[Rfam]
RNA sequence: GUAGCUCUCUUUGCCUUUUGGCUUAGAUCAAGUGUAGUAUCUGUUCUUUUCAGUUUAAUCUCUGAAAGAUCGUCAUAGACGGUCACAUUGAUUAUACUUAUUUUUGCCAUUCGGAGGUGGUCCGCUGUGCUUGCGCAUGAUCACUUCCAUAGUUUCCCCAGUAUUACACUGUCUCUGGGCGAAGCGAACCUUU
Numbered sequence: 001g002u003a004g005c006u007c008u009c010u011u012u013g014c015c016u017u018u019u020g021g022c023u024u025a026g027a028u029c030a031a032g033u034g035u036a037g038u039a040u041c042u043g044u045u046c047u048u049u050u051c052a053g054u055u056u057a058a059u060c061u062c063u064g065a066a067a068g069a070u071c072g073u074c075a076u077a078g079a080c081g082g083u084c085a086c087a088u089u090g091a092u093u094a095u096a097c098u099u100a101u102u103u104u105u106g107c108c109a110u111u112c113g114g115a116g117g118u119g120g121u122c123c124g125c126u127g128u129g130c131u132u133g134c135g136c137a138u139g140a141u142c143a144c145u146u147c148c149a150u151a152g153u154u155u156c157c158c159c160a161g162u163a164u165u166a167c168a169c170u171g172u173c174u175c176u177g178g179g180c181g182a183a184g185c186g187a188a189c190c191u192u193u
Stems, first nucleotide, its partner, number of pairs: 008027003013022003048067006068084007113148008126137004152185005157179005
U2 spliceosomal RNA: a 193-nucleotide sequence from Rutstroemia sp. NJR-2017a BBW. The family has 208 seed sequences and 71,512 matches in Rfam 15.1. From the family's description: U2 is a small nuclear RNA (snRNA) component of the spliceosome (involved in pre-mRNA splicing). On this family, see Zwieb, Nucleic Acids Res 1997: "The uRNA database". Its family is annotated with U2 snRNP, mRNA branch site recognition and pre-mRNA branch point binding in the Gene Ontology. The source organism's lineage runs through Eukaryota, Ascomycota, saccharomyceta, leotiomyceta and Rutstroemia. The base pairs follow the family's consensus structure, which is taken from published work. The family's RNA type in Rfam is spliceosomal small nuclear RNA.